[Rfam]
RNA sequence: GCCCAAGGACGACCUCGGGCCUGCCUAGUAGAUCGGGGACGACCCCA
Numbered sequence: 001g002c003c004c005a006a007g008g009a010c011g012a013c014c015u016c017g018g019g020c021c022u023g024c025c026u027a028g029u030a031g032a033u034c035g036g037g038g039a040c041g042a043c044c045c046c047a
Stems, first nucleotide, its partner, number of pairs: 001020004006015003035046004
Rfam assigns this 47-nucleotide RNA sequence from Pseudomonas sp. GV071 to the family "Guanidine-II riboswitch aptamer (mini-ykkC)". NCBI's taxonomy places the organism under Bacteria, Pseudomonadati, Gammaproteobacteria, Pseudomonadales, Pseudomonas. It scores 43 bits against the family's covariance model.